[Rfam]
RNA sequence: CGCUGCACUGCGGGAGAGCGUCGCCGCCGGGACCCGCGUCCCGGUCGGGCGGCCGCCGAAGGAGCAACACCUCCUCGUCAAACUCUCAGGCACCCAGGACCGUGGUGUCGAC
Numbered sequence: 001c002g003c004u005g006c007a008c009u010g011c012g013g014g015a016g017a018g019c020g021u022c023g024c025c026g027c028c029g030g031g032a033c034c035c036g037c038g039u040c041c042c043g044g045u046c047g048g049g050c051g052g053c054c055g056c057c058g059a060a061g062g063a064g065c066a067a068c069a070c071c072u073c074c075u076c077g078u079c080a081a082a083c084u085c086u087c088a089g090g091c092a093c094c095c096a097g098g099a100c101c102g103u104g105g106u107g108u109c110g111a112c
Stems, first nucleotide, its partner, number of pairs: 006107008020053006055091003058087002062085003069078002